[Rfam]
RNA sequence: GGGAUUUGAGGACGGAACCGGCAGCCGUCGCCCUUGUUGGAGAUGUAGGAGUGUCGCCCUACCAAGUCUU
Numbered sequence: 001g002g003g004a005u006u007u008g009a010g011g012a013c014g015g016a017a018c019c020g021g022c023a024g025c026c027g028u029c030g031c032c033c034u035u036g037u038u039g040g041a042g043a044u045g046u047a048g049g050a051g052u053g054u055c056g057c058c059c060u061a062c063c064a065a066g067u068c069u070u
Base pairs, nucleotide, nucleotide: 001070002069003068004067005066006065007064008063011029012028013027014026015025019056020055021054022053023052031040045062046061047060048059049058
skipping-rope RNA: a 70-nucleotide sequence. It is one of the family's seed sequences. It is annotated as a small RNA.